Shown here is a 127-nucleotide RNA sequence from Citrus unshiu, a member of the family "U11 spliceosomal RNA". Gene Ontology terms of the family: pre-mRNA 5'-splice site binding, U11 snRNP and mRNA 5'-splice site recognition.

RNA sequence: UAAAAGGGUCGGUUGGCUAAGUAUGCCUCACUCGCCCGCGUUUGGUGAGUGCCGUAUGGCAAUCAAGACAUAUGGCCGACAUAAUUUGUGGAACCUCAAAGGGUUGGCUCGCUUGGCCGACCCUCCA
Number, nucleotide and partner (000 for none) at each position: 001u000002a000003a000004a000005a000006g000007g000008g080009u079010c078011g077012g076013u000014u000015g027016g026017c025018u000019a000020a000021g000022u000023a000024u000025g017026c016027c015028u000029c051030a050031c049032u048033c047034g046035c045036c044037c000038g000039c000040g000041u000042u000043u000044g036045g035046u034047g033048a032049g031050u030051g029052c075053c074054g073055u072056a071057u070058g069059g000060c000061a000062a000063u000064c000065a000066a000067g000068a000069c058070a057071u056072a055073u054074g053075g052076c012077c011078g010079a009080c008081a000082u000083a000084a000085u000086u000087u000088g000089u000090g000091g000092a000093a000094c000095c000096u000097c000098a000099a124100a000101g122102g000103g121104u120105u119106g118107g117108c000109u115110c000111g000112c000113u000114u000115g109116g000117c107118c106119g105120a104121c103122c101123c000124u099125c000126c000127a000

By type it is a spliceosomal small nuclear RNA.